[Rfam]
RNA sequence: CGUCUGGUGAGGAUAGAAAAAGGACAGGUUUCGCUAAAAUACUAGCCGAACGCCAACAUGUAGAGACACCUUGGCUGUCUGAGGACG
Numbered sequence: 001c002g003u004c005u006g007g008u009g010a011g012g013a014u015a016g017a018a019a020a021a022g023g024a025c026a027g028g029u030u031u032c033g034c035u036a037a038a039a040u041a042c043u044a045g046c047c048g049a050a051c052g053c054c055a056a057c058a059u060g061u062a063g064a065g066a067c068a069c070c071u072u073g074g075c076u077g078u079c080u081g082a083g084g085a086c087g
Stems, first nucleotide, its partner, number of pairs: 001087004

A member of the RNA family "Caenorhabditis snoRNA ceN28" from Caenorhabditis briggsae, 87 nucleotides long. The base pairs follow the family's consensus structure. On this family, see Jia et al., BMC Mol Biol 2007: "Systematic identification of non-coding RNA 2,2,7-trimethylguanosine cap structures in Caenorhabditis elegans". The organism belongs to Caenorhabditis, within Eukaryota. Gene Ontology terms of the family: nucleolus and RNA processing.